[Rfam]
RNA sequence: GCAACACAGUGUGCACAGCAUUAAUCUGUGUCUAGCAGUACAGUCUGCUUGUGUUUUGCAUUCAGACCGUACAGCUCACACUAAACUUGUGGCCAGAGAUGAACAUGAGAUCAUAGUACUGGUCUAGUGCUGUCUCUGGACAUACCCCACCACUGGCCAGCCUCCAAAUUCUCAGACAUAA
Numbered sequence: 001g002c003a004a005c006a007c008a009g010u011g012u013g014c015a016c017a018g019c020a021u022u023a024a025u026c027u028g029u030g031u032c033u034a035g036c037a038g039u040a041c042a043g044u045c046u047g048c049u050u051g052u053g054u055u056u057u058g059c060a061u062u063c064a065g066a067c068c069g070u071a072c073a074g075c076u077c078a079c080a081c082u083a084a085a086c087u088u089g090u091g092g093c094c095a096g097a098g099a100u101g102a103a104c105a106u107g108a109g110a111u112c113a114u115a116g117u118a119c120u121g122g123u124c125u126a127g128u129g130c131u132g133u134c135u136c137u138g139g140a141c142a143u144a145c146c147c148c149a150c151c152a153c154u155g156g157c158c159a160g161c162c163u164c165c166a167a168a169u170u171c172u173c174a175g176a177c178a179u180a181a
Stems, first nucleotide, its partner, number of pairs: 013090003030081002033078001035076001036074001038072004043067005050060003106174005119160006126154004131144003135140001
RNA: Small nucleolar RNA SNORA23